[Rfam]
RNA sequence: UUAGAGAACGUUUUAGCUAAUGAACUGUUUUGUCCCUCUCAAAUAAAUAACAAAUUGUUACUUGACAGAGAGGGACAAAAAAGUUCAACAGCUAAAACAUUCUAUAAC
Dot-bracket structure: (((.((....((((((((..((((((.(((((((..............((((...))))....))))))..........).))))))..))))))))....)).))).
The record is a 108-nucleotide RNA from Plutella xylostella, which matches "mir-8517 microRNA precursor family" in Rfam.
Its family is annotated with RISC complex and miRNA-mediated post-transcriptional gene silencing in the Gene Ontology.